[Rfam]
RNA sequence: AACUCUAGUUUAAUAUUAUAAAAAGAUAUAAGAGGUAUAAGAUAGGUAGGAGCUUUAGUGCUAGUAAAAUACUACUAUCCUUAUUAUUAUUUUACUUAUUUAAUUAAGUAGAGCUAGGCCUUACUAUAUAACUUUUAGGAUUUUAGGUCCUUUAUAGGCUAAUUUAGGUUAAAGAUAUUAUUAGGUAAAAAGUUU
Numbered sequence: 001a002a003c004u005c006u007a008g009u010u011u012a013a014u015a016u017u018a019u020a021a022a023a024a025g026a027u028a029u030a031a032g033a034g035g036u037a038u039a040a041g042a043u044a045g046g047u048a049g050g051a052g053c054u055u056u057a058g059u060g061c062u063a064g065u066a067a068a069a070u071a072c073u074a075c076u077a078u079c080c081u082u083a084u085u086a087u088u089a090u091u092u093u094a095c096u097u098a099u100u101u102a103a104u105u106a107a108g109u110a111g112a113g114c115u116a117g118g119c120c121u122u123a124c125u126a127u128a129u130a131a132c133u134u135u136u137a138g139g140a141u142u143u144u145a146g147g148u149c150c151u152u153u154a155u156a157g158g159c160u161a162a163u164u165u166a167g168g169u170u171a172a173a174g175a176u177a178u179u180a181u182u183a184g185g186u187a188a189a190a191a192g193u194u195u
Base pairs, nucleotide, nucleotide: 002193003192004191009185010184011183012182013181014180015179019094020093021092022091023090025088026087027086028084029083030082031081032080034078045076046075047074048073049072052059053058099173100172101171102170103169109166110165111164112163117129146160147159148158149157
Source information:
The record is a 195-nucleotide part of an RNA from Plenodomus tracheiphilus, which matches "Eukaryotic large subunit ribosomal RNA" in Rfam. The family's consensus secondary structure is taken from published work. Lineage of the source: Eukaryota > Dikarya > leotiomyceta > Pleosporineae > Plenodomus tracheiphilus. It scores 1744 bits against the family's covariance model.